[Rfam]
RNA sequence: AUGCGAAGAUCCCAGCAGAGAGGCAAGUUACUCUUAUAAGAGGCCACUCUAACCAUUGAUUUCAAUAUCCUUCGCAUAAUUAAUUGCCGAAUCGUAGGAUGUCCAAAUUUUUUUAGUUUUGGUGCAUCUUGAACCCUUGGCUAUAUUUUU
Number, nucleotide and partner (000 for none) at each position: 001a000002u000003g075004c074005g073006a072007a071008g070009a000010u000011c020012c000013c018014a000015g000016c000017a000018g013019a000020g011021a000022g000023g000024c000025a000026a048027g047028u000029u000030a000031c042032u041033c040034u039035u000036a000037u000038a000039a034040g033041a032042g031043g000044c000045c000046a000047c027048u026049c000050u000051a000052a000053c000054c000055a000056u000057u000058g000059a000060u000061u000062u000063c000064a000065a000066u000067a000068u000069c000070c008071u007072u006073c005074g004075c003076a000077u000078a000079a000080u000081u000082a000083a000084u000085u000086g141087c140088c139089g138090a137091a000092u000093c000094g000095u000096a000097g000098g128099a127100u000101g125102u124103c122104c121105a120106a119107a118108u000109u000110u000111u000112u000113u000114u000115a000116g000117u000118u107119u106120u105121g104122g103123u000124g102125c101126a000127u099128c098129u000130u000131g000132a000133a000134c000135c000136c000137u090138u089139g088140g087141c086142u000143a000144u000145a000146u000147u000148u000149u000150u000
A member of the RNA family "Small nucleolar RNA snoR145" from Trifolium pratense, 150 nucleotides long. For this family Rfam cites "Mining small RNA sequencing data: a new approach to identify small nucleolar RNAs in Arabidopsis" (Chen and Wu, Nucleic Acids Res, 2009). Rfam classes the family as an H/ACA-box small nucleolar RNA. The base pairs follow the family's consensus structure, which was predicted with mfold.